Shown here is a 102-nucleotide sequence from Otolemur garnettii, a member of the family "Y RNA". The family's consensus secondary structure is taken from published work.
[Rfam]
RNA sequence: GGGCAGUCCGAGUGCAGUGGUGUUUACAACUCAGUGAUGGCAACCAGUUACAGUUUGCUUUGGUCCUUCUCCACUCCCACAGCUUCACUUGACUAGCCAAAA
Numbered sequence: 001g002g003g004c005a006g007u008c009c010g011a012g013u014g015c016a017g018u019g020g021u022g023u024u025u026a027c028a029a030c031u032c033a034g035u036g037a038u039g040g041c042a043a044c045c046a047g048u049u050a051c052a053g054u055u056u057g058c059u060u061u062g063g064u065c066c067u068u069c070u071c072c073a074c075u076c077c078c079a080c081a082g083c084u085u086c087a088c089u090u091g092a093c094u095a096g097c098c099a100a101a102a
Stems, first nucleotide, its partner, number of pairs: 001098002005094004010090002014086001017080004022076001029064003033060002

Y RNAs are components of the Ro ribonucleoprotein particle (Ro RNP), in association with Ro60 and La proteins. The Y RNAs and Ro60 and La proteins are well conserved, but the function of the Ro RNP is not known. In humans the RNA component can be one of four small RNAs -- hY1, hY3, hY4 and hY5. These small RNAs are predicted to fold into a conserved secondary structure containing three stem structures. A search with the family's covariance model found it, with a score of 51 bits. It is annotated as a non-coding RNA gene.